[Rfam]
U12 minor spliceosomal RNA: a 150-nucleotide RNA sequence from Bombus vosnesenskii. The pairing is the family consensus, mapped onto this sequence. A reference for the family is Tarn and Steitz (1997), "Pre-mRNA splicing: the discovery of a new spliceosome doubles the challenge", Trends Biochem Sci.
RNA sequence: GUGCCUUAAACUAAUGAGUAAGGAAAAUAUAGAGCUUUGGUAACGCUUAGCUAUGCUAAUUAUUAAGCGACCAUAUUUUUGAAGGGGCAAAGGUCGUCCCAAGGCAGUGCGAACUACUUUUUCGUGCAGCCUGGUGAAGCGAUCUACCUC
Numbered sequence: 001g002u003g004c005c006u007u008a009a010a011c012u013a014a015u016g017a018g019u020a021a022g023g024a025a026a027a028u029a030u031a032g033a034g035c036u037u038u039g040g041u042a043a044c045g046c047u048u049a050g051c052u053a054u055g056c057u058a059a060u061u062a063u064u065a066a067g068c069g070a071c072c073a074u075a076u077u078u079u080u081g082a083a084g085g086g087g088c089a090a091a092g093g094u095c096g097u098c099c100c101a102a103g104g105c106a107g108u109g110c111g112a113a114c115u116a117c118u119u120u121u122u123c124g125u126g127c128a129g130c131c132u133g134g135u136g137a138a139g140c141g142a143u144c145u146a147c148c149u150c
Stems, first nucleotide, its partner, number of pairs: 004023005033052004039046001054070001055068003084150004091145007100134001103131003107127001109125005
Lineage of the source: Eukaryota > Insecta > Pterygota > Endopterygota > Pyrobombus.